[Rfam]
RNA sequence: AUUCGAACCCCGGGGAGCCAGCAAACUGGCUGAGAGGUGCGGGUAUGCUCCGCACGACCCGUCGAACCUGAACCCGUUAGGACGGGCGGAGGGAGUGGGCGGCCUUUCUCC
Numbered sequence: 001a002u003u004c005g006a007a008c009c010c011c012g013g014g015g016a017g018c019c020a021g022c023a024a025a026c027u028g029g030c031u032g033a034g035a036g037g038u039g040c041g042g043g044u045a046u047g048c049u050c051c052g053c054a055c056g057a058c059c060c061g062u063c064g065a066a067c068c069u070g071a072a073c074c075c076g077u078u079a080g081g082a083c084g085g086g087c088g089g090a091g092g093g094a095g096u097g098g099g100c101g102g103c104c105u106u107u108c109u110c111c
Stems, first nucleotide, its partner, number of pairs: 008099003011061004017030005037055007067092003073086004